[Rfam]
Record summary: A member of the RNA family "small nucleolar RNA snoR134" from Chara braunii, 143 nucleotides long. On this family, see Chen and Wu, Nucleic Acids Res 2009: "Mining small RNA sequencing data: a new approach to identify small nucleolar RNAs in Arabidopsis". The family has 5 seed sequences and 792 matches in Rfam 15.1. By type it is an H/ACA-box small nucleolar RNA. Its family is annotated with RNA processing and nucleolus in the Gene Ontology.

RNA sequence: UUGCAUGAUCCUGACCCCGGGCGCAUUGGCGAUAUUCUACAUGGCCAUUAGUGCCCUGUGGAUGUGCUAUAGCAACUGUGUCCCGUGUUGCAGUUUUUGUGGAUUGUCCACAUGAAAGCUGUGUCAAAUCGGACCCAAUAUCA
Numbered sequence: 001u002u003g004c005a006u007g008a009u010c011c012u013g014a015c016c017c018c019g020g021g022c023g024c025a026u027u028g029g030c031g032a033u034a035u036u037c038u039a040c041a042u043g044g045c046c047a048u049u050a051g052u053g054c055c056c057u058g059u060g061g062a063u064g065u066g067c068u069a070u071a072g073c074a075a076c077u078g079u080g081u082c083c084c085g086u087g088u089u090g091c092a093g094u095u096u097u098u099g100u101g102g103a104u105u106g107u108c109c110a111c112a113u114g115a116a117a118g119c120u121g122u123g124u125c126a127a128a129u130c131g132g133a134c135c136c137a138a139u140a141u142c143a
Base pairs, nucleotide, nucleotide: 003067004066005065006064007063010061011060020055021054022053023052024051025049029046078136080134081133082132083131086126087125089123090122091121092120093119094118095114